The family of this 87-nucleotide sequence from Gossypium mustelinum is "MIR7486 microRNA precursor family". Its family is annotated with RISC complex and miRNA-mediated post-transcriptional gene silencing in the Gene Ontology. A search with the family's covariance model found it, with a score of 77 bits. The source organism's lineage runs through Eukaryota, Streptophyta, Mesangiospermae, Pentapetalae and Gossypium. The family's consensus secondary structure was predicted with RNAalifold.
[Rfam]
RNA sequence: CUCAAGGAAGUGUUUUGUCCACGUGGAUAGAAAACGCAUCUUUGAGGGCGCGCUUUGUGUCCAUGUGGACAAGGUGCUUCCUUGAGG
Numbered sequence: 001c002u003c004a005a006g007g008a009a010g011u012g013u014u015u016u017g018u019c020c021a022c023g024u025g026g027a028u029a030g031a032a033a034a035c036g037c038a039u040c041u042u043u044g045a046g047g048g049c050g051c052g053c054u055u056u057g058u059g060u061c062c063a064u065g066u067g068g069a070c071a072a073g074g075u076g077c078u079u080c081c082u083u084g085a086g087g
Base pairs, nucleotide, nucleotide: 001086002085003084004083005082006081007080008079009078010077011076012075013074014073015072016071017070018069019068020067021066023064024063025062026061027060028059029058031056032055033054035052036051037050040047041046